This 191-nucleotide RNA from Scaptodrosophila lebanonensis belongs to the Rfam family "Drosophila small cajal body-specific RNA PsiU2-55". It is annotated as a small Cajal body RNA. On this family, see Deryusheva and Gall, RNA 2013: "Novel small Cajal-body-specific RNAs identified in Drosophila: probing guide RNA function". NCBI's taxonomy places the organism under Eukaryota, Allotriocarida, Brachycera, Muscomorpha, Scaptodrosophila. A search with the family's covariance model found it, with a score of 65 bits.

[Rfam]
RNA sequence: CUUACACCGCAAAGUAGAGUUUCCAACGCACUAGUUUUAUUGGCAACUUUUCAGGCUGUGUUAUAGUAAAACACACUUCCUGUUUACUACGAACUAGCGAUAGUUUUUCUUUAAUUUUUUGGAAGCUGCAAUGAAAAUGUUCGUUACGAUUGGGAAGAUUAAAUCGUAGCUGCUGAUAGUUGCAUACACUG
Numbered sequence: 001c002u003u004a005c006a007c008c009g010c011a012a013a014g015u016a017g018a019g020u021u022u023c024c025a026a027c028g029c030a031c032u033a034g035u036u037u038u039a040u041u042g043g044c045a046a047c048u049u050u051u052c053a054g055g056c057u058g059u060g061u062u063a064u065a066g067u068a069a070a071a072c073a074c075a076c077u078u079c080c081u082g083u084u085u086a087c088u089a090c091g092a093a094c095u096a097g098c099g100a101u102a103g104u105u106u107u108u109c110u111u112u113a114a115u116u117u118u119u120u121g122g123a124a125g126c127u128g129c130a131a132u133g134a135a136a137a138u139g140u141u142c143g144u145u146a147c148g149a150u151u152g153g154g155a156a157g158a159u160u161a162a163a164u165c166g167u168a169g170c171u172g173c174u175g176a177u178a179g180u181u182g183c184a185u186a187c188a189c190u191g
Base pairs, nucleotide, nucleotide: 004061005060006059007058009056010055014052016050018048019047020046021045023043024042025041030037076125077124078123079122080121086115088113089112127184128183129182130181131180132179135177139173140172143170144169146167147166148165149164150163151162
Annotation:
Rfam links the family to the GO terms RNA processing, nucleolus and Cajal body.